[Rfam]
RNA sequence: UCGGUCCCGGUUCACGGUCAGCGUCCGCUCAUCCGACCCGGAACC
Numbered sequence: 001u002c003g004g005u006c007c008c009g010g011u012u013c014a015c016g017g018u019c020a021g022c023g024u025c026c027g028c029u030c031a032u033c034c035g036a037c038c039c040g041g042a043a044c045c
Base pairs, nucleotide, nucleotide: 003045004044005043007041008040009039010038015035016034017033020029021028022027
Dot-bracket structure: ..(((.((((....(((..(((....)))...)))..)))).)))
This 45-nucleotide sequence from Streptacidiphilus pinicola belongs to the Rfam family "L31-Actinobacteria ribosomal protein leader". The organism belongs to Streptacidiphilus, within Bacteria. The base pairs follow the family's consensus structure, which is taken from published work.